[Rfam]
RNA sequence: UUCUCUACAGUUCUCUGACUUCUGUUCUCCGAAAGGAACAAUGGAUUUCAGAACUUAACCCUAAGUAUUUG
Numbered sequence: 001u002u003c004u005c006u007a008c009a010g011u012u013c014u015c016u017g018a019c020u021u022c023u024g025u026u027c028u029c030c031g032a033a034a035g036g037a038a039c040a041a042u043g044g045a046u047u048u049c050a051g052a053a054c055u056u057a058a059c060c061c062u063a064a065g066u067a068u069u070u071g
Stems, first nucleotide, its partner, number of pairs: 009055003015051004
Shown here is a 71-nucleotide part of an RNA from Amorphotheca resinae, a member of the family "Ascomycota telomerase RNA". By type it is a non-coding RNA gene. Gene Ontology terms of the family: telomerase activity, telomerase catalytic core complex and telomere maintenance via telomerase. The base pairs follow the family's consensus structure. The organism belongs to Amorphotheca resinae, within Eukaryota. A reference for the family is Qi et al. (2013), "The common ancestral core of vertebrate and fungal telomerase RNAs", Nucleic Acids Res.